[Rfam]
RNA: mir-9/mir-79 microRNA precursor family
RNA sequence: AUUAUUUGCUCUUUGGUGAUUUUAGCUGUAUGGUGUGUCUAAGUUCCAUAGAGCUUUAUUACCAAAAACCAAAUGGU
Numbered sequence: 001a002u003u004a005u006u007u008g009c010u011c012u013u014u015g016g017u018g019a020u021u022u023u024a025g026c027u028g029u030a031u032g033g034u035g036u037g038u039c040u041a042a043g044u045u046c047c048a049u050a051g052a053g054c055u056u057u058a059u060u061a062c063c064a065a066a067a068a069c070c071a072a073a074u075g076g077u
Stems, first nucleotide, its partner, number of pairs: 001077005007071002010068001012066009024055004029050005